[Rfam]
RNA: SL2 RNA
RNA sequence: CAUUAUCAUUCAGUCUCUCAAAAUAGGUCGAUCUGUCGAUCUAUUGAAAAAAAGUAUCGCACUACAAUUAAUAUUCAGUCUCAAUCGUAUUAUAUUAUGAUUGAAA
Numbered sequence: 001c002a003u004u005a006u007c008a009u010u011c012a013g014u015c016u017c018u019c020a021a022a023a024u025a026g027g028u029c030g031a032u033c034u035g036u037c038g039a040u041c042u043a044u045u046g047a048a049a050a051a052a053a054g055u056a057u058c059g060c061a062c063u064a065c066a067a068u069u070a071a072u073a074u075u076c077a078g079u080c081u082c083a084a085u086c087g088u089a090u091u092a093u094a095u096u097a098u099g100a101u102u103g104a105a106a
Stems, first nucleotide, its partner, number of pairs: 007035002009031002013028002016025001018023001037059004041054002044051002081104008089095002